[Rfam]
Rfam assigns this 92-nucleotide RNA sequence from Roseovarius aestuarii to the family "Selenocysteine transfer RNA". The base pairs follow the family's consensus structure, which is taken from published work. A search with the family's covariance model found it, with a score of 70 bits. Its Rfam clan is "tRNA clan".
RNA sequence: GGAAGAGGAUCGCACCCUGGUGGGGCGCCUGGAUUUCAAAUCCAGUGAGGGGCGUACAACGUCUCUGGUGGGUUCGACUCCCACGCUCUUUC
Numbered sequence: 001g002g003a004a005g006a007g008g009a010u011c012g013c014a015c016c017c018u019g020g021u022g023g024g025g026c027g028c029c030u031g032g033a034u035u036u037c038a039a040a041u042c043c044a045g046u047g048a049g050g051g052g053c054g055u056a057c058a059a060c061g062u063c064u065c066u067g068g069u070g071g072g073u074u075c076g077a078c079u080c081c082c083a084c085g086c087u088c089u090u091u092c
Stems, first nucleotide, its partner, number of pairs: 001092007008084001011027003015024003029045005048066005069083004